[Rfam]
The record is a 348-nucleotide RNA from Anaerostipes rhamnosivorans, which matches "transfer-messenger RNA" in Rfam.
A search with the family's covariance model found it, with a score of 142 bits.
By type it is a non-coding RNA gene.
The source organism's lineage runs through Bacteria, Clostridia, Lachnospirales, Lachnospiraceae and Anaerostipes.
Its family is annotated with RNA catabolic process in the Gene Ontology.
RNA sequence: GGGCUAGUACUGGUUUCGACAGGGAUUCUGAAGCUCGGGAAGCCAUUCGGAGAGACCACGUUACGGUGUAAACUUAAAUUAAACGCAGAUAAUAAAUUAGCGUACGCUGCAGCCUAAGGGCUUGCAGUAGUCUGUGACAGGUCAUCUACAGCCUGUUAUUAGGCUUCAAAUAAUGUAGAACCCUCGUCUGCUUAAGCUUUGCGGCAGAUGAAGUAUUUAUGAAGCUACUGAAGUGUUGAUCCUGUCUCUGGGAGCAGCAUGGAGGGAAUGUCAAUACAGAGACUGUAAUGGGAGAUGCCUGAGGGGAUGGGUUUUUGGACGCGGGUUCGAUUCCCGCCUAGUCCAUCG
Numbered sequence: 001g002g003g004c005u006a007g008u009a010c011u012g013g014u015u016u017c018g019a020c021a022g023g024g025a026u027u028c029u030g031a032a033g034c035u036c037g038g039g040a041a042g043c044c045a046u047u048c049g050g051a052g053a054g055a056c057c058a059c060g061u062u063a064c065g066g067u068g069u070a071a072a073c074u075u076a077a078a079u080u081a082a083a084c085g086c087a088g089a090u091a092a093u094a095a096a097u098u099a100g101c102g103u104a105c106g107c108u109g110c111a112g113c114c115u116a117a118g119g120g121c122u123u124g125c126a127g128u129a130g131u132c133u134g135u136g137a138c139a140g141g142u143c144a145u146c147u148a149c150a151g152c153c154u155g156u157u158a159u160u161a162g163g164c165u166u167c168a169a170a171u172a173a174u175g176u177a178g179a180a181c182c183c184u185c186g187u188c189u190g191c192u193u194a195a196g197c198u199u200u201g202c203g204g205c206a207g208a209u210g211a212a213g214u215a216u217u218u219a220u221g222a223a224g225c226u227a228c229u230g231a232a233g234u235g236u237u238g239a240u241c242c243u244g245u246c247u248c249u250g251g252g253a254g255c256a257g258c259a260u261g262g263a264g265g266g267a268a269u270g271u272c273a274a275u276a277c278a279g280a281g282a283c284u285g286u287a288a289u290g291g292g293a294g295a296u297g298c299c300u301g302a303g304g305g306g307a308u309g310g311g312u313u314u315u316u317g318g319a320c321g322c323g324g325g326u327u328c329g330a331u332u333c334c335c336g337c338c339u340a341g342u343c344c345a346u347c348g
Base pairs, nucleotide, nucleotide: 001344002343003342004341005340006339007338020317021316022315023314024313025312026311027310028309034303035302036301037300038299039298041296043291044290045289046288047287048060049059052056054069108126109125110124111123112121113120114119129165130164131163132162133161134160135158136157137156138155139154140153141152142151145179146178147177148176149175150174184211185210186209187208188207189206190205191204192203195226196225197224198223199222200221228265229264233260234259235258236257237256240253241252242251244283245282246281247280249276250275321337322336323335324334325333